[Rfam]
RNA sequence: UAUCGCAGCCCUCUUUAGGGCGUUUCCUCCCUAGACUUGGGCCGCACUUCGGUGCGGCCUUUUUUUGUGCGGUGC
Numbered sequence: 001u002a003u004c005g006c007a008g009c010c011c012u013c014u015u016u017a018g019g020g021c022g023u024u025u026c027c028u029c030c031c032u033a034g035a036c037u038u039g040g041g042c043c044g045c046a047c048u049u050c051g052g053u054g055c056g057g058c059c060u061u062u063u064u065u066u067g068u069g070c071g072g073u074g075c
Stems, first nucleotide, its partner, number of pairs: 008021004039060009
Dot-bracket structure: .......((((......)))).................(((((((((....)))))))))...............
RNA: Makes More Granules Regulator RNA (mmgR)
Organism: Faunimonas pinastri